About this RNA: Rfam assigns this 105-nucleotide RNA sequence to the family "SAM riboswitch aptamer (S box leader)". A search with the family's covariance model found it, with a score of 74 bits. About the family: The SAM riboswitch is found upstream of a number of genes which code for proteins involved in methionine or cysteine biosynthesis in Gram-positive bacteria.
RNA sequence: AACUUAUUCAGAGUAGGUGGAGGGACCGAGCCCGAUGAAACCCGGCAACCGGCUAGUAAAAUAGCACGGUGCUAAUUCUCGCAGCAUUUUGCUGACAGAUAAGGU
Numbered sequence: 001a002a003c004u005u006a007u008u009c010a011g012a013g014u015a016g017g018u019g020g021a022g023g024g025a026c027c028g029a030g031c032c033c034g035a036u037g038a039a040a041c042c043c044g045g046c047a048a049c050c051g052g053c054u055a056g057u058a059a060a061a062u063a064g065c066a067c068g069g070u071g072c073u074a075a076u077u078c079u080c081g082c083a084g085c086a087u088u089u090u091g092c093u094g095a096c097a098g099a100u101a102a103g104g105u
Base pairs, nucleotide, nucleotide: 001105003103004102005101006100007099008098013043016042017041018040022033023032024031027081028080029079030078044073045072046071047070049069050068052065053064054063055062077097082094083093084092085091086090